[Rfam]
The record is a 114-nucleotide sequence from Inhella crocodyli, which matches "Glycine riboswitch aptamer" in Rfam.
Lineage of the source: Bacteria > Pseudomonadati > Pseudomonadota > Burkholderiales > Inhella.

RNA sequence: GCGUUCCGAGCUGGAGAGAGGCGUGCUUUUGAAGCCGCCCACCGAAGGGGCAAGCCGAACGGGGGUCAACUCCAGCCGGUCAAUCUCUCAGGUAAAGCGGACAGCAAGGGCAAG
Numbered sequence: 001g002c003g004u005u006c007c008g009a010g011c012u013g014g015a016g017a018g019a020g021g022c023g024u025g026c027u028u029u030u031g032a033a034g035c036c037g038c039c040c041a042c043c044g045a046a047g048g049g050g051c052a053a054g055c056c057g058a059a060c061g062g063g064g065g066u067c068a069a070c071u072c073c074a075g076c077c078g079g080u081c082a083a084u085c086u087c088u089c090a091g092g093u094a095a096a097g098c099g100g101a102c103a104g105c106a107a108g109g110g111c112a113a114g
Stems, first nucleotide, its partner, number of pairs: 006109002010105004020039004041093003044089002048087003054080004